[Rfam]
Selenocysteine insertion sequence 1: a 63-nucleotide RNA from Drosophila simulans.
RNA sequence: UUCAACUUAUGAAGAUUAUUUCUUAAAGGCCUCUGGCUCGGAAAUGGUCUGAACUUUGUUGCA
Numbered sequence: 001u002u003c004a005a006c007u008u009a010u011g012a013a014g015a016u017u018a019u020u021u022c023u024u025a026a027a028g029g030c031c032u033c034u035g036g037c038u039c040g041g042a043a044a045u046g047g048u049c050u051g052a053a054c055u056u057u058g059u060u061g062c063a
Stems, first nucleotide, its partner, number of pairs: 001063001003061003014049010029037003
Pairs were carried over by alignment from the consensus structure, which is taken from published work. It scores 38 bits against the family's covariance model. Rfam 15.1 lists 3,793 matches to the family in 721 species.